[Rfam]
RNA sequence: AUCGAGCAACACCCAACCGGCAACUGGAGGCCAUCAACAUGUUCAUCGACGAAGUGGUUCUCGCAGGGAUUCUUACAGUAGGCCUCAUGGUCGCUUUCUUCGGUGGGGUCGGUUACUUCAUCUGGAAGGAUUCCCAUAGCCGCAAAGGCUGAUCCUCCCGGAUACACAGAGCACGCAAGGCACUUAGGGCGACUUCGGUCGCCCGUUUUUUUU
Numbered sequence: 001a002u003c004g005a006g007c008a009a010c011a012c013c014c015a016a017c018c019g020g021c022a023a024c025u026g027g028a029g030g031c032c033a034u035c036a037a038c039a040u041g042u043u044c045a046u047c048g049a050c051g052a053a054g055u056g057g058u059u060c061u062c063g064c065a066g067g068g069a070u071u072c073u074u075a076c077a078g079u080a081g082g083c084c085u086c087a088u089g090g091u092c093g094c095u096u097u098c099u100u101c102g103g104u105g106g107g108g109u110c111g112g113u114u115a116c117u118u119c120a121u122c123u124g125g126a127a128g129g130a131u132u133c134c135c136a137u138a139g140c141c142g143c144a145a146a147g148g149c150u151g152a153u154c155c156u157c158c159c160g161g162a163u164a165c166a167c168a169g170a171g172c173a174c175g176c177a178a179g180g181c182a183c184u185u186a187g188g189g190c191g192a193c194u195u196c197g198g199u200c201g202c203c204c205g206u207u208u209u210u211u212u213u
Stems, first nucleotide, its partner, number of pairs: 010105004054064003081092004171181002174179001187204007

Shown here is a 213-nucleotide RNA sequence from Pseudomonas aeruginosa, a member of the family "PhrS". Rfam classes the family as a small RNA. For this family Rfam cites "Detection of small RNAs in Pseudomonas aeruginosa by RNomics and structure-based bioinformatic tools" (Sonnleitner et al., Microbiology, 2008). Rfam's curators put it in the seed alignment. Taxonomically the source falls in Pseudomonas aeruginosa (Bacteria, Pseudomonadota, Pseudomonadales, Pseudomonas).